[Rfam]
Nucleotides: 132
Stems, first nucleotide, its partner, number of pairs: 003060002006057001019047004025040004078119006092110001094108001
Number, partner (000 for none) and nucleotide at each position: 001000a002000c003060c004059c005000a006057c007000u008000g009000g010000u011000u012000c013000c014000u015000u016000u017000u018000c019047c020046u021045a022044u023000a024000g025040g026039a027038u028037c029000u030000g031000a032000a033000c034000a035000u036000u037028g038027g039026u040025c041000u042000u043000g044022g045021u046020g047019g048000c049000c050000a051000u052000a053000a054000a055000a056000c057006g058000a059004g060003g061000a062000a063000a064000a065000g066000u067000a068000a069000u070000a071000c072000u073000g074000a075000a076000g077000u078119u079118g080117g081116c082115c083114u084000u085000a086000c087000u088000g089000u090000g091000u092110u093000a094108u095000a096000u097000u098000c099000u100000g101000g102000u103000a104000u105000a106000a107000a108094g109000c110092a111000u112000g113000c114083g115082g116081g117080c118079u119078a120000u121000u122000u123000u124000c125000a126000a127000a128000a129000a130000a131000g132000g

Rfam assigns this 132-nucleotide RNA from Carlito syrichta to the family "Small nucleolar RNA SNORA61". By type it is an H/ACA-box small nucleolar RNA. NCBI's taxonomy places the organism under Eukaryota, Bilateria, Euarchontoglires, Tarsiiformes, Carlito. The family has 25 seed sequences and 881 matches in Rfam 15.1. Rfam describes the family as follows. ACA61 is a member of the H/ACA class of snoRNA that guide the sites of modification of uridines to pseudouridines. Gene Ontology terms of the family: RNA processing and nucleolus.